[Rfam]
The family of this 63-nucleotide RNA sequence from Trypanosoma cruzi is "Trypanosomatid snoRNA TB9Cs1H1". Pairs were carried over by alignment from the consensus structure, which was predicted with WAR. A reference for the family is Liang et al. (2005), "A genome-wide analysis of C/D and H/ACA-like small nucleolar RNAs in Trypanosoma brucei reveals a trypanosome-specific pattern of rRNA modification", RNA. Its family is annotated with nucleolus and RNA processing in the Gene Ontology. Lineage of the source: Eukaryota > Discoba > Metakinetoplastina > Trypanosomatidae > Schizotrypanum. It is one of the family's seed sequences.

RNA sequence: AGCACAGAAGAUGAAGCCGGCUGUGGCUGAACAGUGCUGCGUCGGUGCCGACACUGUGCGAGA
Numbered sequence: 001a002g003c004a005c006a007g008a009a010g011a012u013g014a015a016g017c018c019g020g021c022u023g024u025g026g027c028u029g030a031a032c033a034g035u036g037c038u039g040c041g042u043c044g045g046u047g048c049c050g051a052c053a054c055u056g057u058g059c060g061a062g063a
Stems, first nucleotide, its partner, number of pairs: 002059006016046005